[Rfam]
RNA sequence: GCUGAGUUGGGUAGCGCCUGCUUGUAAUCCUAGCGGAGGCAUUAAGGUGAUUGGACGUUGGUUCGGCACAUGGAUUCGGUUCCACUGUGACUCUCCUCAGGCCUGUCCGUACCAAGUCAAGAGUUGAGCCAGGCGUCUUGUGCGAAGGCUCGGGUCUUGUGGCUCCUAGAGUGGAAGGCACCGCGUGAGGCUGGUUUCACAGAGCAGCGAAAACUUCCCCCUCUUGGCAGUGGAAGGAUAACAGGCUGUUGUCACUUGGAUCCAUAUCCAUGGGCCGAUUCUACUUGGACAAUCACUUUU
Dot-bracket structure: (((((((.((......)).))))....(((....))))))...((((((((((..((.(((.(((((.(((((((..((.((((..((((.(.......(((((((((.(.(((.((((((((..((((((.(.(.((((.((....)).)))).).).))))))(....).(((((......(((....(((......)))....)))....)))))..))))))))..))).)))...)))))))...))))).)))).))..))))))).))))).).))..))..)))))))))).

This 300-nucleotide RNA sequence from Gossypium davidsonii belongs to the Rfam family "Plant signal recognition particle RNA".
Pairs were carried over by alignment from the consensus structure, which is taken from published work.